[Rfam]
RNA sequence: GCUGUUUUCGGGUGGAUGAUUUUGCAAUUUUGAUGCUUGAAACGUUGAAAGAAAUUGCACAGUAUCCAUCUGCAUUCCGCC
Numbered sequence: 001g002c003u004g005u006u007u008u009c010g011g012g013u014g015g016a017u018g019a020u021u022u023u024g025c026a027a028u029u030u031u032g033a034u035g036c037u038u039g040a041a042a043c044g045u046u047g048a049a050a051g052a053a054a055u056u057g058c059a060c061a062g063u064a065u066c067c068a069u070c071u072g073c074a075u076u077c078c079g080c081c
Base pairs, nucleotide, nucleotide: 009072010071011070012069013068014067015066016065017064019063020062023059024058025057026056027055028054029053030052031051

Annotation: The record is an 81-nucleotide RNA sequence from Cynoglossus semilaevis, which matches "mir-363 microRNA precursor family" in Rfam. Clan: mir-19 clan. A reference for the family is Ahn et al. (2010), "MicroRNA transcriptome in the newborn mouse ovaries determined by massive parallel sequencing", Mol Hum Reprod. Rfam 15.1 lists 620 matches to the family in 594 species.